A member of the RNA family "Clostridiales-1 RNA", 159 nucleotides long.
RNA sequence: AUAAAGCCUGGUCUCAAAGCGUAUAAAUGAUGCAAGCUUGCUUGAAAAAAUUUGUACGCUUUAGAGACGCUAAUGGACAUGAGCAAGAAGCACGGUAGUGCGGAUUGCGAAUGUACAUAGGAUUGCGGGAGUGAAAGCGUAGCAAUCCGUAGGCUUUAU
Numbered sequence: 001a002u003a004a005a006g007c008c009u010g011g012u013c014u015c016a017a018a019g020c021g022u023a024u025a026a027a028u029g030a031u032g033c034a035a036g037c038u039u040g041c042u043u044g045a046a047a048a049a050a051u052u053u054g055u056a057c058g059c060u061u062u063a064g065a066g067a068c069g070c071u072a073a074u075g076g077a078c079a080u081g082a083g084c085a086a087g088a089a090g091c092a093c094g095g096u097a098g099u100g101c102g103g104a105u106u107g108c109g110a111a112u113g114u115a116c117a118u119a120g121g122a123u124u125g126c127g128g129g130a131g132u133g134a135a136a137g138c139g140u141a142g143c144a145a146u147c148c149g150u151a152g153g154c155u156u157u158a159u
Stems, first nucleotide, its partner, number of pairs: 001159007011068004017062003020058009031047001033044004073118003077114004083108004090101004120148007131138002

It is one of the family's seed sequences. By type it is a small RNA.